FMN riboswitch aptamer (RFN element): a 144-nucleotide RNA sequence from Siminovitchia fortis.
Rfam's curators write: The RFN element is a highly conserved domain that is found frequently in the 5'-untranslated regions of prokaryotic mRNAs that encode for flavin mononucleotide (FMN) biosynthesis and transport proteins.
The organism belongs to Siminovitchia, within Bacteria.
RNA sequence: UUUUUCCUUCGGGGCAGGGUGAAAAUCCCGACCGGCGGUGAUGAGACAAGUGUCUCUUAGUCCGUGACCCGGCUCGGCAACGAUCCGGUGGAUUUGGUGAAAUUCCAAAGCCGACAGUGAAAGUCUGGAUGGGAGAAGGAAAAA
Number, nucleotide and partner (000 for none) at each position: 001u000002u000003u142004u141005u140006c139007c138008u137009u136010c135011g000012g000013g000014g000015c000016a000017g029018g028019g027020u000021g000022a000023a000024a000025a000026u000027c019028c018029c017030g000031a124032c123033c113034g112035g065036c064037g063038g062039u000040g000041a000042u000043g000044a000045g000046a000047c000048a000049a000050g000051u000052g000053u000054c000055u000056c000057u000058u000059a000060g111061u110062c038063c037064g036065u035066g000067a000068c000069c088070c087071g000072g000073c000074u000075c000076g000077g000078c000079a000080a000081c000082g000083a000084u000085c000086c000087g070088g069089u000090g000091g000092a000093u109094u108095u107096g106097g105098u000099g000100a000101a000102a000103u000104u000105c097106c096107a095108a094109a093110g061111c060112c034113g033114a000115c127116a126117g125118u000119g000120a000121a000122a000123g032124u031125c117126u116127g115128g000129a000130u000131g000132g000133g000134a000135g010136a009137a008138g007139g006140a005141a004142a003143a000144a000